[Rfam]
RNA: THF (Tetrahydrofolate) riboswitch aptamer
Organism: Proteiniclasticum sediminis
RNA sequence: GGCAAAGUAGGAAUAUGCGCGUCAAGUGCCAGUCGGACGGGAAGUUGCCGCUGGACGAAAAAUUCCCCCAAAAGGGAGAAUUUACGGUGCCUAUUCCGCAUUCCGUUGCC
Numbered sequence: 001g002g003c004a005a006a007g008u009a010g011g012a013a014u015a016u017g018c019g020c021g022u023c024a025a026g027u028g029c030c031a032g033u034c035g036g037a038c039g040g041g042a043a044g045u046u047g048c049c050g051c052u053g054g055a056c057g058a059a060a061a062a063u064u065c066c067c068c069c070a071a072a073a074g075g076g077a078g079a080a081u082u083u084a085c086g087g088u089g090c091c092u093a094u095u096c097c098g099c100a101u102u103c104c105g106u107u108g109c110c
Base pairs, nucleotide, nucleotide: 001110002109003108004107005106010097011096012095013094014093015092017090018089019088020086021085022084026056027055029054030053031052032051034050035049036048040103041102042101044099060083061082062081063080064079065078